[Rfam]
RNA sequence: AUACUUAGUUGGCAGGGGAUAAGCCAUGAUCACAAAGGUGUUUAGCCCAGGGCAAGGCUUAUCCAUUGCAUGUCAGAUGUGCUGAACCCUGAGAUAUCCCCAAAGCUGGAAAACUUGAGUGCAUAAUUUGUGGUAGUGGGGAACUGUGUUGACACUCUCCCCUG
Numbered sequence: 001a002u003a004c005u006u007a008g009u010u011g012g013c014a015g016g017g018g019a020u021a022a023g024c025c026a027u028g029a030u031c032a033c034a035a036a037g038g039u040g041u042u043u044a045g046c047c048c049a050g051g052g053c054a055a056g057g058c059u060u061a062u063c064c065a066u067u068g069c070a071u072g073u074c075a076g077a078u079g080u081g082c083u084g085a086a087c088c089c090u091g092a093g094a095u096a097u098c099c100c101c102a103a104a105g106c107u108g109g110a111a112a113a114c115u116u117g118a119g120u121g122c123a124u125a126a127u128u129u130g131u132g133g134u135a136g137u138g139g140g141g142a143a144c145u146g147u148g149u150u151g152a153c154a155c156u157c158u159c160c161c162c163u164g
Stems, first nucleotide, its partner, number of pairs: 012122003016048003020044002023042001025040003049090004056083003060079004093116002095113001097110001099109002138162004143158001146155003

U1 spliceosomal RNA: a 164-nucleotide RNA from Cricetulus griseus. U1 is a small nuclear RNA (snRNA) component of the spliceosome (involved in pre-mRNA splicing). Its 5' end forms complementary base pairs with the 5' splice junction, thus defining the 5' donor site of an intron. There are significant differences in sequence and secondary structure between metazoan and yeast U1 snRNAs, the latter being much longer (568 nucleotides as compared to 164 nucleotides in human). The organism belongs to Cricetulus, within Eukaryota. The base pairs follow the family's consensus structure, which is taken from published work. The family's RNA type in Rfam is spliceosomal small nuclear RNA.